[Rfam]
RNA sequence: CUCGUAUCGAGAUGGGGUUGAGGGACCGGCCCGAUGAAACCCCGGCAACCUGCCCGGAUGGGUAAGGUGCCAAGUCCGGCCUCCCGGGUUCUCCCUGGGGGAAAGAUGAGAG
Numbered sequence: 001c002u003c004g005u006a007u008c009g010a011g012a013u014g015g016g017g018u019u020g021a022g023g024g025a026c027c028g029g030c031c032c033g034a035u036g037a038a039a040c041c042c043c044g045g046c047a048a049c050c051u052g053c054c055c056g057g058a059u060g061g062g063u064a065a066g067g068u069g070c071c072a073a074g075u076c077c078g079g080c081c082u083c084c085c086g087g088g089u090u091c092u093c094c095c096u097g098g099g100g101g102a103a104a105g106a107u108g109a110g111a112g
Base pairs, nucleotide, nucleotide: 001112002111003110005108006107007106008105014043015042016041017040018039022032023031024030026079027078028077029076044071045070046069047068049067050066053061054060075104080101081100082099083098084097

Rfam assigns this 112-nucleotide sequence from Tepidiforma thermophila to the family "SAM riboswitch aptamer (S box leader)". The base pairs follow the family's consensus structure, which is taken from published work. Gene Ontology term of the family: regulation of gene expression. Taxonomically the source falls in Tepidiforma (Bacteria, Bacillati, Chloroflexota, Tepidiformales). It scores 74 bits against the family's covariance model.